RNA sequence: GCCUGGCUGGCUCAGUCAGAAGAGCAUGAGACUCUUGAUCUCAGGGUCAUGAGUUCAAGUCCCAUGUUAGGUC
Numbered sequence: 001g002c003c004u005g006g007c008u009g010g011c012u013c014a015g016u017c018a019g020a021a022g023a024g025c026a027u028g029a030g031a032c033u034c035u036u037g038a039u040c041u042c043a044g045g046g047u048c049a050u051g052a053g054u055u056c057a058a059g060u061c062c063c064a065u066g067u068u069a070g071g072u073c
Base pairs, nucleotide, nucleotide: 001072002071003070004069005068006067007066010025011024012023013022027043028042029041030040031039049065050064051063053061

The record is a 73-nucleotide RNA from Felis catus, which matches "tRNA" in Rfam. From the family's description: Transfer RNA (tRNA) molecules are approximately 80 nucleotides in length. Pairs were carried over by alignment from the consensus structure, which is taken from published work. Rfam links the family to the GO term triplet codon-amino acid adaptor activity.